The family of this 66-nucleotide RNA is "S15-Halobacteria ribosomal protein leader".
By type it is a cis-regulatory leader.
Its Rfam clan is "Ribosomal Protein S15 Leader clan".
RNA sequence: UCGGGAACAGCACGACCGCAAAUCUGACACGCUGUGGGUUUCCACAGCUUGAGAUUGCGGCCGUGU
Number, nucleotide and partner (000 for none) at each position: 001u000002c000003g000004g000005g000006a000007a000008c000009a000010g066011c065012a064013c063014g000015a000016c060017c059018g058019c057020a056021a055022a000023u000024c053025u052026g000027a000028c000029a000030c000031g048032c047033u046034g045035u044036g043037g042038g000039u000040u000041u000042c037043c036044a035045c034046a033047g032048c031049u000050u000051g000052a025053g024054a000055u021056u020057g019058c018059g017060g016061c000062c000063g013064u012065g011066u010
About this RNA:
The literature on the family includes a 2020 paper in BMC Microbiol by Eckert and Weinberg, "Discovery of 20 novel ribosomal leader candidates in bacteria and archaea".